This 92-nucleotide RNA from Prunus armeniaca belongs to the Rfam family "MIR6288 microRNA precursor family". Taxonomically the source falls in Prunus (Eukaryota, Streptophyta, Embryophyta, Rosaceae). The base pairs follow the family's consensus structure, which was predicted with RNAalifold.
RNA sequence: CCAAAACUAACCACUUGUCAUUUUCUAAUUGGUUAUUAGUGUGUUCAAAUUUUCUAAGAAACAAUUAGAAAAUGACAAGUGACUAAUUUUGA
Numbered sequence: 001c002c003a004a005a006a007c008u009a010a011c012c013a014c015u016u017g018u019c020a021u022u023u024u025c026u027a028a029u030u031g032g033u034u035a036u037u038a039g040u041g042u043g044u045u046c047a048a049a050u051u052u053u054c055u056a057a058g059a060a061a062c063a064a065u066u067a068g069a070a071a072a073u074g075a076c077a078a079g080u081g082a083c084u085a086a087u088u089u090u091g092a
Base pairs, nucleotide, nucleotide: 002091003090004089005088006087008085009084012081013080014079015078016077017076018075019074020073021072022071023070024069025068026067027066028065029064030063031062033060034059036057037056038055039054